[Rfam]
RNA sequence: CCAAUCUCGGAUUAAUUGUACUGAGACACAUGCGUUAUGACGAUAUCAAAAAAGUUGUGUCAUAACGUGCCGUAGGUACUAGCGAACCAAUCGUUAGUAGAAGGGCAUUAAUAGAGCAAACCUGCACAAAAUAAAGCAGGUGCAUAUUGAAGGAACCCAACA
Numbered sequence: 001c002c003a004a005u006c007u008c009g010g011a012u013u014a015a016u017u018g019u020a021c022u023g024a025g026a027c028a029c030a031u032g033c034g035u036u037a038u039g040a041c042g043a044u045a046u047c048a049a050a051a052a053a054g055u056u057g058u059g060u061c062a063u064a065a066c067g068u069g070c071c072g073u074a075g076g077u078a079c080u081a082g083c084g085a086a087c088c089a090a091u092c093g094u095u096a097g098u099a100g101a102a103g104g105g106c107a108u109u110a111a112u113a114g115a116g117c118a119a120a121c122c123u124g125c126a127c128a129a130a131a132u133a134a135a136g137c138a139g140g141u142g143c144a145u146a147u148u149g150a151a152g153g154a155a156c157c158c159a160a161c162a
Stems, first nucleotide, its partner, number of pairs: 006025005032068008041057003077099009120141005
Rfam assigns this 162-nucleotide RNA from Photobacterium profundum to the family "DABA-DC-AT RNA". By type it is a cis-regulatory element.